[Rfam]
RNA sequence: AAAUUCUGGCAAUCGCUCUGGUGUCGUGCCGGAGAGGAAAGUCCAUGCUCGCACGGUUCUGAGAUGACCGUAGUGAUCGCGCUCAGUGAAACAAUAAGCUGAGGCAGCUAGCAAUAGCUGACGGCGGGUAGAACGCCUAAGUCUUAGGAUAUGGUCGGAAUACCCUGAAGGUGCCACAGUGACGGAGCUGUAUAAGAAAUUAUACAGGUGGAACGAGGUAAACCCCGUGAGCGAGAAACCCAAAUUAUGGUAGGGGCACUUUUCUGAAGGAAAUGAACUGAUGAAGAGGCAGGUGCAAACUUGCAGAUAGAUGAUUGCUGUCCACUAGUACAAGGUGCAAGCCGUUUGAGUACGUGGAAACAAAACAUGGCUUAUAGAA
Dot-bracket structure: ...(((.(((((((.((((((.......))))))....[[[.[[[[[(((((((((.((......)))))).....(((((((((((..........))))))(((((((....)))))).)((.((((.....(((...(((....)))..)))......)))).....(((((............((((((((....)))))))).........)))..))))))))))))))...(((...........)))...((((((..................))))))((((((....))))))........))))))).(((((..((((..................))))))))).......]]]]]]]]...)))
The family of this 379-nucleotide RNA from Planococcus sp. PAMC 21323 is "Bacterial RNase P class B". NCBI's taxonomy places the organism under Bacteria, Bacillota, Bacilli, Caryophanaceae, Planococcus. About the family: Ribonuclease P (RNase P) is a ubiquitous endoribonuclease, found in archaea, bacteria and eukarya as well as chloroplasts and mitochondria. Its best characterised activity is the generation of mature 5'-ends of tRNAs by cleaving the 5'-leader elements of precursor-tRNAs. Cellular RNase Ps are ribonucleoproteins. RNA from bacterial RNase Ps retains its catalytic activity in the absence of the protein subunit, i.e. it is a ribozyme. The family's RNA type in Rfam is ribozyme. Pairs were carried over by alignment from the consensus structure, which is taken from published work.